[Rfam]
RNA sequence: GCCUCAUCAGGAGUUCUCUUGAAGCACUUCAGGAUGCAUCUUUUCAAGAACUUUUCUGAAGUGUUUGGGAGAACUCUUGGUGUCAC
Dot-bracket structure: ....(((((.((((((((((.(((((((((((((.(...............).))))))))))))))))))))))).)))))....